[Rfam]
RNA sequence: CGAAAAUCUAAGAAAUUCUCAGGGCCUUACAUAAGACCCCCAAGAUAAAUUUUGAAUACCCUUACUUUUAGGCAAGGGUU
Number, nucleotide and partner (000 for none) at each position: 001c000002g000003a000004a000005a000006a000007u000008c000009u000010a000011a000012g000013a000014a000015a000016u000017u000018c000019u000020c000021a000022g039023g038024g037025c000026c035027u034028u033029a000030c000031a000032u000033a028034a027035g026036a000037c024038c023039c022040c000041c000042a000043a000044g000045a000046u000047a000048a000049a000050u000051u000052u000053u000054g000055a000056a000057u000058a079059c078060c077061c076062u075063u074064a000065c072066u071067u000068u000069u000070a000071g066072g065073c000074a063075a062076g061077g060078g059079u058080u000
RNA: SmY spliceosomal RNA